This 77-nucleotide sequence from Malus domestica belongs to the Rfam family "Small nucleolar RNA snoR109". The family's consensus secondary structure was predicted with WAR. The organism belongs to Malus, within Eukaryota. A reference for the family is Marker et al. (2002), "Experimental RNomics: identification of 140 candidates for small non-messenger RNAs in the plant Arabidopsis thaliana", Curr Biol.
RNA sequence: UGGAAAUACAACUGAGAAGUUUACUGGCCGGUCUUCGUUUUCUGUCGACACAUCUGCUUACCGAGCUUCUCACAUUU
Numbered sequence: 001u002g003g004a005a006a007u008a009c010a011a012c013u014g015a016g017a018a019g020u021u022u023a024c025u026g027g028c029c030g031g032u033c034u035u036c037g038u039u040u041u042c043u044g045u046c047g048a049c050a051c052a053u054c055u056g057c058u059u060a061c062c063g064a065g066c067u068u069c070u071c072a073c074a075u076u077u
Stems, first nucleotide, its partner, number of pairs: 014071008026058003030054003035048003
The family has 6 seed sequences and 680 matches in Rfam 15.1. Its family is annotated with RNA processing and nucleolus in the Gene Ontology.